[Rfam]
RNA sequence: AUUGCCCUCGAAUAAUUGGAUGUAGAUUCACAUUCUCAUUCGGUUCAGACAGGGGCGUAAAACAAAUUUGAAUCCUUCUCUUUUACAUAUGAUGCAUAUGAAAAGGGAUGCUGGCUUCUGUCAAUCCUUUCUUAAGAUGGAUUCAUAUAGCU
Numbered sequence: 001a002u003u004g005c006c007c008u009c010g011a012a013u014a015a016u017u018g019g020a021u022g023u024a025g026a027u028u029c030a031c032a033u034u035c036u037c038a039u040u041c042g043g044u045u046c047a048g049a050c051a052g053g054g055g056c057g058u059a060a061a062a063c064a065a066a067u068u069u070g071a072a073u074c075c076u077u078c079u080c081u082u083u084u085a086c087a088u089a090u091g092a093u094g095c096a097u098a099u100g101a102a103a104a105g106g107g108a109u110g111c112u113g114g115c116u117u118c119u120g121u122c123a124a125u126c127c128u129u130u131c132u133u134a135a136g137a138u139g140g141a142u143u144c145a146u147a148u149a150g151c152u
Stems, first nucleotide, its partner, number of pairs: 003057006014045008024036002069145006076108003083103001086100006115139001117137003
RNA: Small nucleolar RNA snoR138